Shown here is a 380-nucleotide sequence from Lentibacillus populi, a member of the family "Bacterial RNase P class B". NCBI's taxonomy places the organism under Bacteria, Bacillati, Bacillota, Bacilli, Lentibacillus. Clan: RNaseP clan. It is annotated as a ribozyme.
[Rfam]
RNA sequence: AUACUUGUGUAAUCGCUGCAUGUCACAUGCAGAGGAAAGUCCAUGCUCACACAAACUGAGACGUUUGUAGUGUUCGUGCUUGACGAAAUCAUAAGUCAAGGUAGCCUUCAUUGGUUAACGGCAGGAGAAAUUCCUAUAGUCUAAAAUGAUAUGGAAUACGCUCCUUGAAGGUGCCACAGUGACGUAGUCCAGGUGGAAACGCCUGGAGUGGAACGAGGUAAACCCCGCGAGUGAGCAACCCAAAUAAUGGUAGGGGCAUCCUUUAGUAGGGAAAUGAACCGAAAAAGGGACAAGCUAUUCGCUUGUAGAUAGAUGAUUACGACCAAAGUACAAGGCUGACCACCGAUGGAGUACAAUGGAACAGAACAUGGCUUAUCGAG
Numbered sequence: 001a002u003a004c005u006u007g008u009g010u011a012a013u014c015g016c017u018g019c020a021u022g023u024c025a026c027a028u029g030c031a032g033a034g035g036a037a038a039g040u041c042c043a044u045g046c047u048c049a050c051a052c053a054a055a056c057u058g059a060g061a062c063g064u065u066u067g068u069a070g071u072g073u074u075c076g077u078g079c080u081u082g083a084c085g086a087a088a089u090c091a092u093a094a095g096u097c098a099a100g101g102u103a104g105c106c107u108u109c110a111u112u113g114g115u116u117a118a119c120g121g122c123a124g125g126a127g128a129a130a131u132u133c134c135u136a137u138a139g140u141c142u143a144a145a146a147u148g149a150u151a152u153g154g155a156a157u158a159c160g161c162u163c164c165u166u167g168a169a170g171g172u173g174c175c176a177c178a179g180u181g182a183c184g185u186a187g188u189c190c191a192g193g194u195g196g197a198a199a200c201g202c203c204u205g206g207a208g209u210g211g212a213a214c215g216a217g218g219u220a221a222a223c224c225c226c227g228c229g230a231g232u233g234a235g236c237a238a239c240c241c242a243a244a245u246a247a248u249g250g251u252a253g254g255g256g257c258a259u260c261c262u263u264u265a266g267u268a269g270g271g272a273a274a275u276g277a278a279c280c281g282a283a284a285a286a287g288g289g290a291c292a293a294g295c296u297a298u299u300c301g302c303u304u305g306u307a308g309a310u311a312g313a314u315g316a317u318u319a320c321g322a323c324c325a326a327a328g329u330a331c332a333a334g335g336c337u338g339a340c341c342a343c344c345g346a347u348g349g350a351g352u353a354c355a356a357u358g359g360a361a362c363a364g365a366a367c368a369u370g371g372c373u374u375a376u377c378g379a380g
Stems, first nucleotide, its partner, number of pairs: 004380003007376001008321007016032006037374003041371005046235005051068006074230005079100006101119001102117005120225002123165004131156004139150003171223002173219003188207008239255003259289006290306006323359003328354004